Rfam assigns this 325-nucleotide RNA sequence from Otolemur garnettii to the family "7SK RNA". The family has 45 seed sequences and 49,373 matches in Rfam 15.1. 7SK was discovered as an abundant small nuclear RNA in the mid-70s but a possible function has only recently been suggested. The match comes from Rfam's covariance-model search (254 bits).
RNA sequence: GGAUGUGAGGGCGAUCUGGCUGCGACAUCUGUCACCCCAUUGAUGACCAGGGUUGAUUCGACUGAUCUGUCUGGCUAGGUGAAUGUCCCCUUCCCACCUUACCGCUCCAUGUGCGUCCCUCCCGAAGUUGCAUGCGGGGUCUAAGAGGACGACCUUACCCAAUAGACCGUUCUUCUGUCAAGGGUAUAUGAGUAGCUGCCCUCCCCUGCUAGAACCUCCAAACAAGCUUUUAAGGUCCAUUUGUUGGAGAAUGUAGGUUAGUCAAGCUUCCAAGACUCCAGACACAUCCAAAUGAGGCGCUGCAUGUGGCAGUCUGCGUUAAAAA
Numbered sequence: 001g002g003a004u005g006u007g008a009g010g011g012c013g014a015u016c017u018g019g020c021u022g023c024g025a026c027a028u029c030u031g032u033c034a035c036c037c038c039a040u041u042g043a044u045g046a047c048c049a050g051g052g053u054u055g056a057u058u059c060g061a062c063u064g065a066u067c068u069g070u071c072u073g074g075c076u077a078g079g080u081g082a083a084u085g086u087c088c089c090c091u092u093c094c095c096a097c098c099u100u101a102c103c104g105c106u107c108c109a110u111g112u113g114c115g116u117c118c119c120u121c122c123c124g125a126a127g128u129u130g131c132a133u134g135c136g137g138g139g140u141c142u143a144a145g146a147g148g149a150c151g152a153c154c155u156u157a158c159c160c161a162a163u164a165g166a167c168c169g170u171u172c173u174u175c176u177g178u179c180a181a182g183g184g185u186a187u188a189u190g191a192g193u194a195g196c197u198g199c200c201c202u203c204c205c206c207u208g209c210u211a212g213a214a215c216c217u218c219c220a221a222a223c224a225a226g227c228u229u230u231u232a233a234g235g236u237c238c239a240u241u242u243g244u245u246g247g248a249g250a251a252u253g254u255a256g257g258u259u260a261g262u263c264a265a266g267c268u269u270c271c272a273a274g275a276c277u278c279c280a281g282a283c284a285c286a287u288c289c290a291a292a293u294g295a296g297g298c299g300c301u302g303c304a305u306g307u308g309g310c311a312g313u314c315u316g317c318g319u320u321a322a323a324a325a
Base pairs, nucleotide, nucleotide: 001108002107003106005102006101007100008099009098010097013093014092018090019089024087025086026085027084028083030081031080032079033078035074036073038069039068042067043066044065048060117169120166121165122139123138127135128134140162147158149156195267196266197265201261202260205257206256207255208254209253216249217248218247219246222244223243224242225241226240294320295319297317298316299313300312301311302310303309
Dot-bracket structure: (((.((((((..((...((....(((((.((((.((.((..(((...(...........)....)))))...))...)))).))))).)).))...))))))...)))........(..((((...((.....))..))(......(.(......).)...)..))..).........................(((...((..(((((......((((..(((((.............))))).))))...)))))..))...)))..........................((.(((((((.....)))))..)).)).....